[Rfam]
RNA sequence: GGACCCCUCCACGUCUUGGAGUAGGUCAUUGGGUGGAUCCGUGUUUUCGCUACGUGGGCCACUGGAUGGCUCCUCCAUGUCUUGGCG
Dot-bracket structure: ........(((.(.(.(((((..(((((((.(((((.(((...............)))))))).))))))).))))).).).)))..